Annotation:
This 87-nucleotide RNA sequence from Arachis duranensis belongs to the Rfam family "Plastid-psbM 3UTR RNA". The family's RNA type in Rfam is cis-regulatory element. Plastid psbM is a non-coding RNA (ncRNA) recognised in plastids. It was found in the three prime untranslated region (3UTR) of psbM gene, its 3UTR location suggests a role in transcript maturation. It scores 53 bits against the family's covariance model. Taxonomically the source falls in Arachis (Eukaryota, Viridiplantae, Magnoliopsida, Dalbergieae). The family has 237 seed sequences and 627 matches in Rfam 15.1.
RNA sequence: GGAUAGAUAAUAUGGUAGAAAGAAAUCAAAUUGAUUUCUUUCUACCAUAUUAUCUAUAUUAUCUAUUCUAUAAUUGUAGUUUCAACA
Numbered sequence: 001g002g003a004u005a006g007a008u009a010a011u012a013u014g015g016u017a018g019a020a021a022g023a024a025a026u027c028a029a030a031u032u033g034a035u036u037u038c039u040u041u042c043u044a045c046c047a048u049a050u051u052a053u054c055u056a057u058a059u060u061a062u063c064u065a066u067u068c069u070a071u072a073a074u075u076g077u078a079g080u081u082u083c084a085a086c087a
Stems, first nucleotide, its partner, number of pairs: 006054022